[Rfam]
Small nucleolar RNA SNORD75: a 61-nucleotide RNA from Sciurus carolinensis. For this family Rfam cites "Classification of gas5 as a multi-small-nucleolar-RNA (snoRNA) host gene and a member of the 5'-terminal oligopyrimidine gene family reveals common features of snoRNA host genes" (Smith and Steitz, Mol Cell Biol, 1998). The family has 5 seed sequences and 767 matches in Rfam 15.1. Rfam links the family to the GO terms nucleolus and RNA processing. NCBI's taxonomy places the organism under Eukaryota, Gnathostomata, Euteleostomi, Mammalia, Sciurus. The match comes from Rfam's covariance-model search (69 bits). The family's consensus secondary structure was predicted with RNAalifold.
RNA sequence: AGCCUAUGAUGGUAUAGGAGUAGUGGGCAGAGGGAUUUCUGAAAAAUUUUAUUCUGAGGUU
Numbered sequence: 001a002g003c004c005u006a007u008g009a010u011g012g013u014a015u016a017g018g019a020g021u022a023g024u025g026g027g028c029a030g031a032g033g034g035a036u037u038u039c040u041g042a043a044a045a046a047u048u049u050u051a052u053u054c055u056g057a058g059g060u061u
Stems, first nucleotide, its partner, number of pairs: 001061004